RNA sequence: AAACUCACAAAGGGGAGUCCAAUUGGGCUGAGAUUGAAUCUAUUUCUAAACCCUUCGUACCUGUUUCGGUUAUGCGAGCGUAGGAAUUGUGAAAAAACAGCUG
Numbered sequence: 001a002a003a004c005u006c007a008c009a010a011a012g013g014g015g016a017g018u019c020c021a022a023u024u025g026g027g028c029u030g031a032g033a034u035u036g037a038a039u040c041u042a043u044u045u046c047u048a049a050a051c052c053c054u055u056c057g058u059a060c061c062u063g064u065u066u067c068g069g070u071u072a073u074g075c076g077a078g079c080g081u082a083g084g085a086a087u088u089g090u091g092a093a094a095a096a097a098c099a100g101c102u103g
Base pairs, nucleotide, nucleotide: 006091007090008089009088010087011054012053013052014051017028018027019026020025036046037045038044060084061083062082063081065078066077067076068075

Shown here is a 103-nucleotide sequence from Enterococcus sp. NBRC 3427, a member of the family "TPP riboswitch aptamer (THI element)". Taxonomically the source falls in Enterococcus (Bacteria, Bacillota, Bacilli, Lactobacillales). Gene Ontology term of the family: thiamine pyrophosphate binding.